[Rfam]
RNA sequence: UGGCUCCCAAUGCGGGGCUCUGGCAUGGGGGAUCCAGUGAGGGACCCGGUUGUCAGCCUGGCCAGCACCCUCUCCUCAGGAGGUUGACUCAUCGCGGGAGCCUGCUGCUUUGCGUCCCCUCGGUAAGUGACCAGCAAUUCAUUAUGGGACAGGCAAUUAGAGAACAUGAAAUGUUUCUUCAAGGUUUAGAAAAAGCUCUCAGGGCAUGAGGAGUAAGGUUAAAGGUAAAGAUUUGUCUAGGUAUUUUGCAUAUAUAAAGGAGGUCUGUUCCU
Dot-bracket structure: .....(((...(.(.........).)..)))....(((..........)))..............................((....(.(...((((.......))))...).)...))............(.(...((((...)))).).).......(...................................)..........(((((.((.(((((.........)))))......)).))))).........(((((.....)))))